The record is a 54-nucleotide RNA sequence from Granulicatella sp. WM01, which matches "Bacillus-plasmid RNA" in Rfam. The match comes from Rfam's covariance-model search (39 bits). The family's consensus secondary structure is taken from published work. By type it is a small RNA. NCBI's taxonomy places the organism under Bacteria, Bacillota, Lactobacillales, Carnobacteriaceae, Granulicatella.
RNA sequence: AAAGUCAACGGUAGCGGACUGUAAGGAGCAUAAGGAGUUGAGUUUGUCCUAGUC
Dot-bracket structure: (((.(((((...........................))))).))).........